[Rfam]
The family of this 52-nucleotide sequence from Acrocarpospora phusangensis is "L17-Actino-Proteobacteria ribosomal protein leader". The literature on the family includes a 2020 paper in BMC Microbiol by Eckert and Weinberg, "Discovery of 20 novel ribosomal leader candidates in bacteria and archaea".
RNA sequence: ACGACCGGUUCGCCGGUCGGCCCGACCCCGGUACCUGGUACGGCCGGGGCGG
Numbered sequence: 001a002c003g004a005c006c007g008g009u010u011c012g013c014c015g016g017u018c019g020g021c022c023c024g025a026c027c028c029c030g031g032u033a034c035c036u037g038g039u040a041c042g043g044c045c046g047g048g049g050c051g052g
Stems, first nucleotide, its partner, number of pairs: 002019007022052003026049007

It scores 55 bits against the family's covariance model.